RNA sequence: AAUACUUGUCGCUUUGAGUUUUUGUUUGUAACUUUUGAUCAUUCAUCUUAUUCAAAAAAAUUUUGGAAUUAUUAUUUAUUUUGUUUGUGACUUGCUUUAUUAUCAAAAGUACUUUGAGUAUGACUUAUCCUUUUAUAUAUUUGCACUAUUUUUUCAAAUAAGACUAAUGGUCAAACGUUGCAAGAAAAAAGUCAAAGCGACCACUAAU
Numbered sequence: 001a002a003u004a005c006u007u008g009u010c011g012c013u014u015u016g017a018g019u020u021u022u023u024g025u026u027u028g029u030a031a032c033u034u035u036u037g038a039u040c041a042u043u044c045a046u047c048u049u050a051u052u053c054a055a056a057a058a059a060a061u062u063u064u065g066g067a068a069u070u071a072u073u074a075u076u077u078a079u080u081u082u083g084u085u086u087g088u089g090a091c092u093u094g095c096u097u098u099a100u101u102a103u104c105a106a107a108a109g110u111a112c113u114u115u116g117a118g119u120a121u122g123a124c125u126u127a128u129c130c131u132u133u134u135a136u137a138u139a140u141u142u143g144c145a146c147u148a149u150u151u152u153u154u155c156a157a158a159u160a161a162g163a164c165u166a167a168u169g170g171u172c173a174a175a176c177g178u179u180g181c182a183a184g185a186a187a188a189a190a191g192u193c194a195a196a197g198c199g200a201c202c203a204c205u206a207a208u
Stems, first nucleotide, its partner, number of pairs: 027182006034175010046163006
Annotation: The record is a 208-nucleotide RNA sequence from Oryza glumipatula, which matches "MIR812 microRNA precursor family" in Rfam. The match comes from Rfam's covariance-model search (86 bits). The source organism's lineage runs through Eukaryota, Tracheophyta, Euphyllophyta, Spermatophyta and Oryza. The family's consensus secondary structure was predicted with RNAalifold.